[Rfam]
RNA sequence: AUCUGCCUGGCUCCCUGGAUGCCAACUAAGGAUGCUGUCAAUUCAAGGAUUGGCUCUUCCUAGUUGGCCUCAGAGGAGUCAAGCAGGU
Numbered sequence: 001a002u003c004u005g006c007c008u009g010g011c012u013c014c015c016u017g018g019a020u021g022c023c024a025a026c027u028a029a030g031g032a033u034g035c036u037g038u039c040a041a042u043u044c045a046a047g048g049a050u051u052g053g054c055u056c057u058u059c060c061u062a063g064u065u066g067g068c069c070u071c072a073g074a075g076g077a078g079u080c081a082a083g084c085a086g087g088u
Base pairs, nucleotide, nucleotide: 001088002087003086004085005084006083008081009080010079011078012077013076014075016073018071019070021068022067023066024065027062028061
This 88-nucleotide RNA sequence from Corchorus capsularis belongs to the Rfam family "mir-160 microRNA precursor family". NCBI's taxonomy places the organism under Eukaryota, Viridiplantae, Magnoliopsida, rosids, Corchorus. It scores 48 bits against the family's covariance model. For this family Rfam cites "Prediction of plant microRNA targets" (Rhoades et al., Cell, 2002). Rfam links the family to the GO terms RISC complex and miRNA-mediated post-transcriptional gene silencing.